[Rfam]
RNA sequence: CCGAAAUCUGCGCCGGAACCAAGCGGCAUCCAAUAUUGGUCACAGCCGUGCUCCACGCCACGGACCGUAAACCCCUGAACGGGUGCCAGCAGUAGCUUUUUAUUGGCAUCAGCUACUGCUGUAAACCAGCAGUUCAGGAGAUUGUUGUCCGUGGCGGCGAGCACGGCUGUGACAAAUGUUGGAUGCCGCUUGGUUCCGGCGCAGAUUUCGG
Numbered sequence: 001c002c003g004a005a006a007u008c009u010g011c012g013c014c015g016g017a018a019c020c021a022a023g024c025g026g027c028a029u030c031c032a033a034u035a036u037u038g039g040u041c042a043c044a045g046c047c048g049u050g051c052u053c054c055a056c057g058c059c060a061c062g063g064a065c066c067g068u069a070a071a072c073c074c075c076u077g078a079a080c081g082g083g084u085g086c087c088a089g090c091a092g093u094a095g096c097u098u099u100u101u102a103u104u105g106g107c108a109u110c111a112g113c114u115a116c117u118g119c120u121g122u123a124a125a126c127c128a129g130c131a132g133u134u135c136a137g138g139a140g141a142u143u144g145u146u147g148u149c150c151g152u153g154g155c156g157g158c159g160a161g162c163a164c165g166g167c168u169g170u171g172a173c174a175a176a177u178g179u180u181g182g183a184u185g186c187c188g189c190u191u192g193g194u195u196c197c198g199g200c201g202c203a204g205a206u207u208u209c210g211g
Stems, first nucleotide, its partner, number of pairs: 001211033035177003039173003043169011056156006063149003068144003072140001074138007081127002087121011

A member of the RNA family "MIR8622 microRNA precursor family" from Ectocarpus siliculosus, 211 nucleotides long. Lineage of the source: Eukaryota > Ochrophyta > Phaeophyceae > Ectocarpales > Ectocarpus. The base pairs follow the family's consensus structure, which was predicted with RNAalifold.